[Rfam]
RNA: mir-2060 microRNA precursor family
RNA sequence: CUAUGUGUGGAUGGUGUUCAGCACCAAGGACAGACCUGUUGCCAUGUAUGGAUGGUGUUCAGCACCAAGGACAGACUUGUUUCUAU
Numbered sequence: 001c002u003a004u005g006u007g008u009g010g011a012u013g014g015u016g017u018u019c020a021g022c023a024c025c026a027a028g029g030a031c032a033g034a035c036c037u038g039u040u041g042c043c044a045u046g047u048a049u050g051g052a053u054g055g056u057g058u059u060c061a062g063c064a065c066c067a068a069g070g071a072c073a074g075a076c077u078u079g080u081u082u083c084u085a086u
Stems, first nucleotide, its partner, number of pairs: 001074002004071001012067007020059007028047001030045001033042001036041001
Dot-bracket structure: ((.(.......(((((((.(((((((.(.(..(..(....))..).).....))))))).)))))))...).))............